[Rfam]
RNA: S15-Flavobacteria ribosomal protein leader
RNA sequence: UAUCUUUGCCGCCUGAUUCAAAGCGGAUCAGAUACAUAAUAAUCAUUUAAAGCAAUAUUGGCAUG
Numbered sequence: 001u002a003u004c005u006u007u008g009c010c011g012c013c014u015g016a017u018u019c020a021a022a023g024c025g026g027a028u029c030a031g032a033u034a035c036a037u038a039a040u041a042a043u044c045a046u047u048u049a050a051a052g053c054a055a056u057a058u059u060g061g062c063a064u065g
Base pairs, nucleotide, nucleotide: 014030015029016028017027018026019025